RNA sequence: AAUGAAUCUAUUGUCUGCCGAGCCGUACGGUUACCGCCGUACGGGGAGGGCAGCGAAAAGAGGAAUCA
Number, nucleotide and partner (000 for none) at each position: 001a000002a000003u000004g000005a000006a000007u000008c000009u000010a000011u056012u055013g054014u000015c053016u052017g051018c050019c049020g000021a000022g000023c044024c043025g042026u041027a040028c039029g038030g037031u036032u000033a000034c000035c000036g031037c030038c029039g028040u027041a026042c025043g024044g023045g000046g000047a000048g000049g019050g018051c017052a016053g015054c013055g012056a011057a000058a000059a000060g000061a000062g000063g000064a000065a000066u000067c000068a000
RNA: ilvH RNA